This 85-nucleotide RNA from Pipistrellus kuhlii belongs to the Rfam family "mir-9215 microRNA precursor family".
It scores 101 bits against the family's covariance model.
[Rfam]
RNA sequence: AGAAGUGCUCUGACACUAGGAUGUGUGGCUGCCGUGGGUUGGAGGGAACCAGGCUUGCCCAGGGUCAGUGUCUCCAGCAUUCAGU
Number, nucleotide and partner (000 for none) at each position: 001a000002g082003a081004a080005g000006u079007g078008c077009u076010c000011u000012g072013a071014c070015a069016c068017u067018a000019g066020g000021a000022u063023g000024u061025g060026u000027g059028g058029c057030u000031g054032c053033c052034g000035u000036g000037g050038g049039u048040u047041g000042g000043a000044g000045g000046g000047a040048a039049c038050c037051a000052g033053g032054c031055u000056u000057g029058c028059c027060c025061a024062g000063g022064g000065u000066c019067a017068g016069u015070g014071u013072c012073u000074c000075c000076a009077g008078c007079a006080u004081u003082c002083a000084g000085u000